[Rfam]
RNA sequence: UGCGUUGAUCCUUUUGUUAGGACGCAAGUAAGGCUGAGGCCUGAAGCAACGGGAC
Numbered sequence: 001u002g003c004g005u006u007g008a009u010c011c012u013u014u015u016g017u018u019a020g021g022a023c024g025c026a027a028g029u030a031a032g033g034c035u036g037a038g039g040c041c042u043g044a045a046g047c048a049a050c051g052g053g054a055c
Stems, first nucleotide, its partner, number of pairs: 003051005009022004025052001031042003
RNA: Glutamine riboswitch aptamer (glnA leader)